[Rfam]
RNA sequence: UCACUCACAUCUCCUUAUCACUUUUCCAGUCCAGCUAACGACUGCGAAUCCGUUGGACGGAGAACUGAUAAGGGCAUGUGACUGA
Numbered sequence: 001u002c003a004c005u006c007a008c009a010u011c012u013c014c015u016u017a018u019c020a021c022u023u024u025u026c027c028a029g030u031c032c033a034g035c036u037a038a039c040g041a042c043u044g045c046g047a048a049u050c051c052g053u054u055g056g057a058c059g060g061a062g063a064a065c066u067g068a069u070a071a072g073g074g075c076a077u078g079u080g081a082c083u084g085a
Base pairs, nucleotide, nucleotide: 012074013073014072015071016070017069018068019067020066022064023063024062025061026060027059030056031055
Record summary:
The family of this 85-nucleotide RNA sequence from Megalops atlanticus is "mir-184 microRNA precursor family". On this family, see Chen et al., Genes Dev 2005: "The developmental miRNA profiles of zebrafish as determined by small RNA cloning". The source organism's lineage runs through Eukaryota, Eumetazoa, Deuterostomia, Craniata and Megalops. The match comes from Rfam's covariance-model search (79 bits).